A member of the RNA family "MIR390 microRNA precursor family" from Ricinus communis, 124 nucleotides long. Rfam 15.1 lists 649 matches to the family in 206 species. For this family Rfam cites "ASRP: the Arabidopsis Small RNA Project Database" (Gustafson et al., Nucleic Acids Res, 2005). A search with the family's covariance model found it, with a score of 83 bits. Gene Ontology terms of the family: miRNA-mediated post-transcriptional gene silencing and RISC complex.
[Rfam]
RNA sequence: AAGAAGAACCUGUGAAACUCAGGAUGGAUAGCGCCACUAAAGACUAUACAUAUGUUUUGUUUGGACAAUAAUAUAUCAAUGAUCUUCACGGCGCUAUCCCUCCUGAGCUUAACAGAGUCUCCAU
Numbered sequence: 001a002a003g004a005a006g007a008a009c010c011u012g013u014g015a016a017a018c019u020c021a022g023g024a025u026g027g028a029u030a031g032c033g034c035c036a037c038u039a040a041a042g043a044c045u046a047u048a049c050a051u052a053u054g055u056u057u058u059g060u061u062u063g064g065a066c067a068a069u070a071a072u073a074u075a076u077c078a079a080u081g082a083u084c085u086u087c088a089c090g091g092c093g094c095u096a097u098c099c100c101u102c103c104u105g106a107g108c109u110u111a112a113c114a115g116a117g118u119c120u121c122c123a124u
Base pairs, nucleotide, nucleotide: 010115016109018107019106020105021104022103023102024101026099027098028097029096030095031094032093033092034091035090